[Rfam]
RNA sequence: GACCAGGCUUAGCUGAGUGGUUAACUCGGUCACAAAUUGGUGCAGUACGUGACCUUUCAAGGGUUCGAACCACUGGCGCUGUUCUGUGUCAUUU
Numbered sequence: 001g002a003c004c005a006g007g008c009u010u011a012g013c014u015g016a017g018u019g020g021u022u023a024a025c026u027c028g029g030u031c032a033c034a035a036a037u038u039g040g041u042g043c044a045g046u047a048c049g050u051g052a053c054c055u056u057u058c059a060a061g062g063g064u065u066c067g068a069a070c071c072a073c074u075g076g077c078g079c080u081g082u083u084c085u086g087u088g089u090c091a092u093u094u
Base pairs, nucleotide, nucleotide: 002089003088004086005085006084007083012077013076014075015074017073018072019071020070026068027067028066029065
RNA: Vault RNA